[Rfam]
RNA: tRNA
Organism: Euglena gracilis
RNA sequence: GCUGGGAUAGCUCAGUUGGUAGAGCGGAGGACUGAAAAUCCUUGUGUCACCAGUUCAAAUCUGGUUCCUAGCA
Numbered sequence: 001g002c003u004g005g006g007a008u009a010g011c012u013c014a015g016u017u018g019g020u021a022g023a024g025c026g027g028a029g030g031a032c033u034g035a036a037a038a039u040c041c042u043u044g045u046g047u048c049a050c051c052a053g054u055u056c057a058a059a060u061c062u063g064g065u066u067c068c069u070a071g072c073a
Stems, first nucleotide, its partner, number of pairs: 001072007010025004027043005049065005